[Rfam]
Nucleotides: 110
Base pairs, nucleotide, nucleotide: 001110002109003108004107005106006105007104008103013041015040016039017038021031022030023029026076027075028074042069043068044067045066047065048064050062051061073102078099079098080097081096082095083094084093085092
Number, partner (000 for none) and nucleotide at each position: 001110u002109u003108c004107u005106u006105a007104u008103c009000c010000a011000g012000a013041g014000c015040g016039g017038c018000g019000g020000a021031g022030g023029g024000a025000c026076u027075g028074g029023c030022c031021c032000u033000a034000u035000g036000a037000a038017g039016c040015c041013c042069g043068g044067c045066a046000a047065c048064c049000a050062u051061c052000a053000c054000g055000a056000a057000a058000g059000u060000g061051g062050a063000a064048g065047g066045u067044g068043c069042c070000a071000a072000u073102u074028c075027c076026a077000a078099c079098a080097g081096a082095g083094c084093g085092u086000a087000u088000u089000c090000g091000u092085a093084c094083g095082c096081u097080u098079u099078g100000a101000c102073a103008g104007a105006u106005a107004a108003g109002a110001g